The family of this 77-nucleotide RNA sequence from Ascaris suum is "mir-43_2 microRNA precursor family". Taxonomically the source falls in Ascaris (Eukaryota, Eumetazoa, Chromadorea, Ascaridomorpha).
[Rfam]
RNA sequence: ACAGCGGCGCGUGGCAAAGAUACUGCGAUGCGCCGCGUUACAUCGUAUCACAGUUCUUUGUCACCCUUUGCUUUACG
Numbered sequence: 001a002c003a004g005c006g007g008c009g010c011g012u013g014g015c016a017a018a019g020a021u022a023c024u025g026c027g028a029u030g031c032g033c034c035g036c037g038u039u040a041c042a043u044c045g046u047a048u049c050a051c052a053g054u055u056c057u058u059u060g061u062c063a064c065c066c067u068u069u070g071c072u073u074u075a076c077g
Stems, first nucleotide, its partner, number of pairs: 003072005011064010022054004027049006